[Rfam]
RNA sequence: GGUGGAGGAAGAGAGCUUUCUUCGGUCCACUCAUGGAGUAAUAUGUGAGAUUUAAUUGACUCUCGACUCAUUCAUCCAAAUACCAAAUGAAAGAAUUUGUUCUCAUAUGGUAAAUGAAUGAAUGAUGCGAGAGACAAAUUGAGUCUUCACUUCUCUAUGCUUGGACUGAAGGGAGCUCCCUAUUUUUAUCUU
Numbered sequence: 001g002g003u004g005g006a007g008g009a010a011g012a013g014a015g016c017u018u019u020c021u022u023c024g025g026u027c028c029a030c031u032c033a034u035g036g037a038g039u040a041a042u043a044u045g046u047g048a049g050a051u052u053u054a055a056u057u058g059a060c061u062c063u064c065g066a067c068u069c070a071u072u073c074a075u076c077c078a079a080a081u082a083c084c085a086a087a088u089g090a091a092a093g094a095a096u097u098u099g100u101u102c103u104c105a106u107a108u109g110g111u112a113a114a115u116g117a118a119u120g121a122a123u124g125a126u127g128c129g130a131g132a133g134a135c136a137a138a139u140u141g142a143g144u145c146u147u148c149a150c151u152u153c154u155c156u157a158u159g160c161u162u163g164g165a166c167u168g169a170a171g172g173g174a175g176c177u178c179c180c181u182a183u184u185u186u187u188a189u190c191u192u
Stems, first nucleotide, its partner, number of pairs: 013178008023168007036155001060133002063130003069124004077116001
RNA: MIR159 microRNA precursor family